A member of the RNA family "transfer-messenger RNA" from Corynebacterium glutamicum, 377 nucleotides long. The family's consensus secondary structure is taken from published work. Rfam describes the family as follows. Bacterial tmRNA, also known as 10Sa RNA or SsrA, is named for its dual tRNA and mRNA-like properties. The sequence is in the family's curated seed alignment. For this family Rfam cites "Probing the structure of the Escherichia coli 10Sa RNA (tmRNA)" (Felden et al., RNA, 1997).
RNA sequence: GGGGCUGACAUGGUUUCGACUACGUUGAUUUAGCCAGGGGAAGCGUGCCGGUGAAGGCUGGAGACCACCGUAAGCGUCGCAGCAAACCAAUAAGCGCCGAGAAGUCUCAGCGCGACUACGCCCUCGCUGCAUAAGCAAGCGACCGCGUGUCUGUCAGCCUAGGGAAGUCCCUGACCUAGAUCCUGGCAUCGACUAAGGGACUUGCUGUUCAAUCGCGUCAGCGGGGUUGAACAGGACUUUUACCGUUGACUGGGCUCAUCAUCCGGAAGUGUUCGUCCUAGCCGGAGGGCCAAGCAGAGAUCUUUGCGCGAACUGCGCACGGAGAAGCCCUGGCGAGGUGACGUAGGACCCGGGUUCAAUUCCCGGCAGCUCCACCG
Numbered sequence: 001g002g003g004g005c006u007g008a009c010a011u012g013g014u015u016u017c018g019a020c021u022a023c024g025u026u027g028a029u030u031u032a033g034c035c036a037g038g039g040g041a042a043g044c045g046u047g048c049c050g051g052u053g054a055a056g057g058c059u060g061g062a063g064a065c066c067a068c069c070g071u072a073a074g075c076g077u078c079g080c081a082g083c084a085a086a087c088c089a090a091u092a093a094g095c096g097c098c099g100a101g102a103a104g105u106c107u108c109a110g111c112g113c114g115a116c117u118a119c120g121c122c123c124u125c126g127c128u129g130c131a132u133a134a135g136c137a138a139g140c141g142a143c144c145g146c147g148u149g150u151c152u153g154u155c156a157g158c159c160u161a162g163g164g165a166a167g168u169c170c171c172u173g174a175c176c177u178a179g180a181u182c183c184u185g186g187c188a189u190c191g192a193c194u195a196a197g198g199g200a201c202u203u204g205c206u207g208u209u210c211a212a213u214c215g216c217g218u219c220a221g222c223g224g225g226g227u228u229g230a231a232c233a234g235g236a237c238u239u240u241u242a243c244c245g246u247u248g249a250c251u252g253g254g255c256u257c258a259u260c261a262u263c264c265g266g267a268a269g270u271g272u273u274c275g276u277c278c279u280a281g282c283c284g285g286a287g288g289g290c291c292a293a294g295c296a297g298a299g300a301u302c303u304u305u306g307c308g309c310g311a312a313c314u315g316c317g318c319a320c321g322g323a324g325a326a327g328c329c330c331u332g333g334c335g336a337g338g339u340g341a342c343g344u345a346g347g348a349c350c351c352g353g354g355u356u357c358a359a360u361u362c363c364c365g366g367c368a369g370c371u372c373c374a375c376c377g
Stems, first nucleotide, its partner, number of pairs: 001373007020346008029337001031336001033334007044321005049070005057083004121141001123139002126136002152188006159179004167201006205234009217250006253291005266282001271313004278306001350366005